This 84-nucleotide sequence from Bombyx mori belongs to the Rfam family "mir-2807 microRNA precursor family". Its family is annotated with RISC complex and miRNA-mediated post-transcriptional gene silencing in the Gene Ontology. It scores 76 bits against the family's covariance model. Taxonomically the source falls in Bombyx (Eukaryota, Altocrustacea, Hexapoda, Ditrysia).
RNA sequence: UUAACUCAAAUUUGUAUGGAGCUCAAACGUUUGCCUAAGUUUGCCGCUAGGGGCGCUGUUCCAACUCCAUACAAAUUCGAGUUA
Numbered sequence: 001u002u003a004a005c006u007c008a009a010a011u012u013u014g015u016a017u018g019g020a021g022c023u024c025a026a027a028c029g030u031u032u033g034c035c036u037a038a039g040u041u042u043g044c045c046g047c048u049a050g051g052g053g054c055g056c057u058g059u060u061c062c063a064a065c066u067c068c069a070u071a072c073a074a075a076u077u078c079g080a081g082u083u084a
Stems, first nucleotide, its partner, number of pairs: 009077008018068001020066002023063001026060004034052003039047002